The family of this 79-nucleotide RNA sequence from Caenorhabditis auriculariae is "mir-228 microRNA precursor family". The base pairs follow the family's consensus structure, which was predicted with RNAalifold. The source organism's lineage runs through Eukaryota, Protostomia, Chromadorea, Rhabditida and Caenorhabditis. Clan: mir-182 clan. A search with the family's covariance model found it, with a score of 57 bits. On this family, see Lim et al., Genes Dev 2003: "The microRNAs of Caenorhabditis elegans".
RNA sequence: CCGUCGUUCGCAAUGGCACUGCAUGAAUUCACGGACGUCGUUUCCGCGAAUCCAGUGGUCCCAUGGCGGACGACGCCCU
Numbered sequence: 001c002c003g004u005c006g007u008u009c010g011c012a013a014u015g016g017c018a019c020u021g022c023a024u025g026a027a028u029u030c031a032c033g034g035a036c037g038u039c040g041u042u043u044c045c046g047c048g049a050a051u052c053c054a055g056u057g058g059u060c061c062c063a064u065g066g067c068g069g070a071c072g073a074c075g076c077c078c079u
Stems, first nucleotide, its partner, number of pairs: 006071005013064004018059005025052002028050003032046003